[Rfam]
RNA: Connexin-43 internal ribosome entry site (IRES)
RNA sequence: AGCUUUUACGAGGUAUCAGCACUUUUCUUUCAUUAGGGGGAAGGCGUGAGGAAAGUACCAAACAGCAGCAGACUUUUAAACUUUAAAUAGACAGGUCGGAGUGCCCGAACUUGCCUGUUCAUUUUACUUCGUCCUCCAAGGAGUUCAAUCACUUGGCGUGCCUACUUCACUUCUUUUAGGCGAACAAGUAAGUUGAGAAAA
Numbered sequence: 001a002g003c004u005u006u007u008a009c010g011a012g013g014u015a016u017c018a019g020c021a022c023u024u025u026u027c028u029u030u031c032a033u034u035a036g037g038g039g040g041a042a043g044g045c046g047u048g049a050g051g052a053a054a055g056u057a058c059c060a061a062a063c064a065g066c067a068g069c070a071g072a073c074u075u076u077u078a079a080a081c082u083u084u085a086a087a088u089a090g091a092c093a094g095g096u097c098g099g100a101g102u103g104c105c106c107g108a109a110c111u112u113g114c115c116u117g118u119u120c121a122u123u124u125u126a127c128u129u130c131g132u133c134c135u136c137c138a139a140g141g142a143g144u145u146c147a148a149u150c151a152c153u154u155g156g157c158g159u160g161c162c163u164a165c166u167u168c169a170c171u172u173c174u175u176u177u178a179g180g181c182g183a184a185c186a187a188g189u190a191a192g193u194u195g196a197g198a199a200a201a
Stems, first nucleotide, its partner, number of pairs: 002020003007015003029143003033139002036136004040130004048123002051120001053119002071097005099114001101112001103110001153198002159195002162192001165188003168182001170180003